[Rfam]
The record is a 172-nucleotide RNA sequence from Terrisporobacter othiniensis, which matches "Lysine riboswitch aptamer" in Rfam. About the family: Riboswitches are metabolite binding domains within certain messenger RNAs that serve as precision sensors for their corresponding targets.
RNA sequence: UAUGUAGGUAGAGGUGCAGUGUUUAUCAGUAUUAACAAUGAGGUAGCACGAUGAUUUGUUAAGAAAGGAAAUAUUGCCGAAGCAUAUAACUGAGGCUUUAAGGUUAUAUAGCUGGGUGUAUAUAGAAUAUAUAUGCAACUGUCACUAAUUUUAGUGUUGAGCUAUCAUUGAG
Numbered sequence: 001u002a003u004g005u006a007g008g009u010a011g012a013g014g015u016g017c018a019g020u021g022u023u024u025a026u027c028a029g030u031a032u033u034a035a036c037a038a039u040g041a042g043g044u045a046g047c048a049c050g051a052u053g054a055u056u057u058g059u060u061a062a063g064a065a066a067g068g069a070a071a072u073a074u075u076g077c078c079g080a081a082g083c084a085u086a087u088a089a090c091u092g093a094g095g096c097u098u099u100a101a102g103g104u105u106a107u108a109u110a111g112c113u114g115g116g117u118g119u120a121u122a123u124a125g126a127a128u129a130u131a132u133a134u135g136c137a138a139c140u141g142u143c144a145c146u147a148a149u150u151u152u153a154g155u156g157u158u159g160a161g162c163u164a165u166c167a168u169u170g171a172g
Base pairs, nucleotide, nucleotide: 007166008165009164010163011162016077017076018075019074020073021072022071023070024069032062033061034060035059036058037057038056081113082112083111084109085108086107087106088105089104090103091102114140115139117137118136119135120134121133122132123131124130143156144155145154146153147152